[Rfam]
The record is an 84-nucleotide sequence from Acetobacterium paludosum, which matches "c-di-GMP-I riboswitch aptamer" in Rfam. Taxonomically the source falls in Acetobacterium (Bacteria, Clostridia, Eubacteriales, Eubacteriaceae).

RNA sequence: UUAAAUAUUGGGCAAACUUAUCCAAAGAUGAGGACGCAAAGCUAUAGGGUCUAAGUAGUUUUUACAUGACAGCCAGUUGCAGAU
Number, nucleotide and partner (000 for none) at each position: 001u000002u000003a000004a000005a000006u000007a000008u000009u000010g000011g000012g037013c036014a000015a000016a000017c032018u031019u030020a029021u028022c027023c000024a000025a000026a000027g022028a021029u020030g019031a018032g017033g000034a000035c000036g013037c012038a000039a000040a078041g077042c076043u075044a000045u000046a000047g074048g073049g070050u069051c068052u000053a000054a000055g000056u064057a063058g062059u000060u000061u000062u058063u057064a056065c000066a000067u000068g051069a050070c049071a000072g000073c048074c047075a043076g042077u041078u040079g000080c000081a000082g000083a000084u000
Its family is annotated with cyclic-di-GMP binding in the Gene Ontology. The match comes from Rfam's covariance-model search (67 bits). Pairs were carried over by alignment from the consensus structure, which is taken from published work.